[Rfam]
RNA sequence: AUUCUCACCGGGGCCUGCGGGGCUGAGCUGCCCUUCUCGGUUGCGGUCCCCGAGGAGCCCGUCCAGCCAGCAGGGCCGCGAGGCCGAGGCCAGGCCGCAGCCCGGGAGCCGCCCCACCGCCGCCCGC
Number, nucleotide and partner (000 for none) at each position: 001a000002u000003u013004c012005u011006c010007a000008c000009c000010g006011g005012g004013g003014c000015c000016u099017g098018c097019g096020g095021g068022g067023c066024u065025g064026a000027g062028c000029u061030g060031c000032c000033c057034u056035u055036c054037u053038c052039g051040g050041u000042u000043g000044c000045g000046g000047u000048c000049c000050c040051c039052g038053a037054g036055g035056a034057g033058c000059c000060c030061g029062u027063c000064c025065a024066g023067c022068c021069a000070g090071c089072a000073g000074g085075g084076c083077c082078g000079c000080g000081a000082g077083g076084c075085c074086g000087a000088g000089g071090c070091c000092a000093g000094g000095c020096c019097g018098c017099a016100g127101c126102c000103c000104g000105g000106g000107a000108g123109c122110c000111g120112c119113c000114c000115c000116a000117c000118c000119g112120c111121c000122g109123c108124c000125c000126g101127c100

Background
The record is a 127-nucleotide RNA from Sapajus apella, which matches "Apolipoprotein B (apoB) 5' UTR cis-regulatory element" in Rfam. This family represents an apolipoprotein B (apoB) cis regulatory element located in the 5' UTR of apoB mRNA. The element is important for optimal translation. The family's consensus secondary structure is taken from published work. It scores 93 bits against the family's covariance model. Its family is annotated with positive regulation of translation in the Gene Ontology.